This 85-nucleotide RNA belongs to the Rfam family "SucA RNA motif". By type it is a cis-regulatory element. For this family Rfam cites "Identification of 22 candidate structured RNAs in bacteria using the CMfinder comparative genomics pipeline" (Weinberg et al., Nucleic Acids Res, 2007). A search with the family's covariance model found it, with a score of 66 bits. Its family is annotated with regulation of translation in the Gene Ontology.

[Rfam]
RNA sequence: UAGCAAACCGCAAUACGGUGAGGCCGUAGCGCGGAAGGUUCGAUAACCCGCUUAACUUCUGGGAAGCCCAGAAAAAAGGUGUGCA
Numbered sequence: 001u002a003g004c005a006a007a008c009c010g011c012a013a014u015a016c017g018g019u020g021a022g023g024c025c026g027u028a029g030c031g032c033g034g035a036a037g038g039u040u041c042g043a044u045a046a047c048c049c050g051c052u053u054a055a056c057u058u059c060u061g062g063g064a065a066g067c068c069c070a071g072a073a074a075a076a077a078g079g080u081g082u083g084c085a
Base pairs, nucleotide, nucleotide: 003084004083008034009033010032011031016026017025018024019023037048038047039046040045049081050080051079052078057073058072059071060070061069062068063067